Small nucleolar RNA snoR111: a 146-nucleotide RNA from Quercus lobata.
The match comes from Rfam's covariance-model search (72 bits).
[Rfam]
RNA sequence: UAAAAGAAAUGAGAGACAGUUUGUAUGUCUCUGCGUUGAAUCCCUCUGCGUUGUGGAGAACACCGAGGUAGAACAAAAUCAACGGCCGAGAUAUUGUUUCAGUCGUCAUUUUUUGGAUUGGUGGUCUGAUUCUUGCUCGUCCACAU
Dot-bracket structure: .....(.((((.(((............................)))..)))).).............................((.((((..((((.....(((((((.((....)).))))))).)))).....)))).))....
Rfam classes the family as an H/ACA-box small nucleolar RNA. For this family Rfam cites "Experimental RNomics: identification of 140 candidates for small non-messenger RNAs in the plant Arabidopsis thaliana" (Marker et al., Curr Biol, 2002). The source organism's lineage runs through Eukaryota, Viridiplantae, Streptophyta, Magnoliopsida and Quercus.